Shown here is a 101-nucleotide RNA sequence from Bacillus infantis, a member of the family "TPP riboswitch aptamer (THI element)". The source organism's lineage runs through Bacteria, Bacillati, Caryophanales, Bacillaceae and Bacillus infantis.
[Rfam]
RNA sequence: AUUCACUGCUGGGGGAGCUUUACAGGCUGAGAAAGGAAAAUCCUAAACCCUUGGAACCUGAUCUGAUUAAUGUCAGCGUAGGGAAGCAGCCGGCAUGGCCU
Numbered sequence: 001a002u003u004c005a006c007u008g009c010u011g012g013g014g015g016a017g018c019u020u021u022a023c024a025g026g027c028u029g030a031g032a033a034a035g036g037a038a039a040a041u042c043c044u045a046a047a048c049c050c051u052u053g054g055a056a057c058c059u060g061a062u063c064u065g066a067u068u069a070a071u072g073u074c075a076g077c078g079u080a081g082g083g084a085a086g087c088a089g090c091c092g093g094c095a096u097g098g099c100c101u
Stems, first nucleotide, its partner, number of pairs: 006089005011051004017027004034044004057082004063076004